The family of this 185-nucleotide sequence from Bacteroidetes oral taxon 274 is "Bacteroidales-1 6S-Bacteroidales RNA suggested". Taxonomically the source falls in Bacteroidetes oral taxon 274 (Bacteria, Pseudomonadati, Bacteroidota). The family's RNA type in Rfam is small RNA. Rfam's curators write: Bacteroidales-1 was first reported in a comparative genomics-based approach of genome and metagenome sequences from Weinberg et al. 2010 In a high-resolution transcriptome map study of Bacteroides thetaiotaomicron, Ryan et al. 2020 report this sRNA as 6S RNA homologue of Bacteroides, in the study they obtain evidence of small product RNAs (pRNAs) related to 6S function.
[Rfam]
RNA sequence: UCCGGCACUGCUUGAGAUUGGAAAAUUCUACAUUUAAAUUCAUAAACCGAGUAGGUUGAGAAGUUGAUGGCGGGCUGCGACCUCGCAAGAGGUAUCCGUAACGGGACGGCAGAUUACAAAGACUUUUCAAACACUCAAAUCCUGUUUUUCAGGAAUUUUUCUCAACAAAUAGCAGUGCUUUUUUU
Numbered sequence: 001u002c003c004g005g006c007a008c009u010g011c012u013u014g015a016g017a018u019u020g021g022a023a024a025a026u027u028c029u030a031c032a033u034u035u036a037a038a039u040u041c042a043u044a045a046a047c048c049g050a051g052u053a054g055g056u057u058g059a060g061a062a063g064u065u066g067a068u069g070g071c072g073g074g075c076u077g078c079g080a081c082c083u084c085g086c087a088a089g090a091g092g093u094a095u096c097c098g099u100a101a102c103g104g105g106a107c108g109g110c111a112g113a114u115u116a117c118a119a120a121g122a123c124u125u126u127u128c129a130a131a132c133a134c135u136c137a138a139a140u141c142c143u144g145u146u147u148u149u150c151a152g153g154a155a156u157u158u159u160u161c162u163c164a165a166c167a168a169a170u171a172g173c174a175g176u177g178c179u180u181u182u183u184u185u
Stems, first nucleotide, its partner, number of pairs: 055132003058128008068118002075112004080093005095106003